[Rfam]
RNA sequence: GUGCCAUGAUGUUAAAUGUCAACACAUCAUUCUGAAGAAUUGUGUGGAGACCUUCUGUAACUGAGCACC
Numbered sequence: 001g002u003g004c005c006a007u008g009a010u011g012u013u014a015a016a017u018g019u020c021a022a023c024a025c026a027u028c029a030u031u032c033u034g035a036a037g038a039a040u041u042g043u044g045u046g047g048a049g050a051c052c053u054u055c056u057g058u059a060a061c062u063g064a065g066c067a068c069c
Stems, first nucleotide, its partner, number of pairs: 001068004
Small nucleolar RNA SNORD63: a 69-nucleotide RNA sequence from Trogon melanurus. The family has 23 seed sequences and 795 matches in Rfam 15.1. snoRNA U63 is found in both humans and mice. The family's RNA type in Rfam is C/D-box small nucleolar RNA. A search with the family's covariance model found it, with a score of 60 bits.